The family of this 110-nucleotide RNA from Gibbsiella quercinecans is "RprA RNA". Lineage of the source: Bacteria > Pseudomonadati > Pseudomonadota > Enterobacterales > Gibbsiella. Rfam's curators write: Translational regulation of the stationary phase sigma factor RpoS is mediated by the formation of a double-stranded RNA stem-loop structure in the upstream region of the rpoS messenger RNA, occluding the translation initiation site. The match comes from Rfam's covariance-model search (70 bits).

[Rfam]
Nucleotides: 110
Base pairs, nucleotide, nucleotide: 003020004019005018031045032044035041064072065071066070081100082099083098084097085096086095087094
Number, partner (000 for none) and nucleotide at each position: 001000a002000c003020u004019g005018c006000c007000u008000a009000a010000u011000a012000u013000u014000a015000u016000u017000g018005g019004c020003a021000u022000a023000u024000g025000c026000u027000u028000a029000g030000c031045a032044c033000a034000a035041a036000u037000u038000c039000a040000c041035u042000g043000u044032g045031u046000a047000a048000u049000g050000c051000c052000a053000u054000a055000c056000a057000u058000g059000u060000a061000a062000a063000u064072u065071g066070c067000u068000g069000u070066g071065u072064g073000u074000a075000g076000u077000c078000u079000u080000u081100g082099c083098c084097c085096g086095u087094c088000g089000c090000c091000u092000a093000c094087g095086a096085u097084g098083g099082g100081c101000u102000u103000u104000u105000u106000u107000u108000u109000a110000u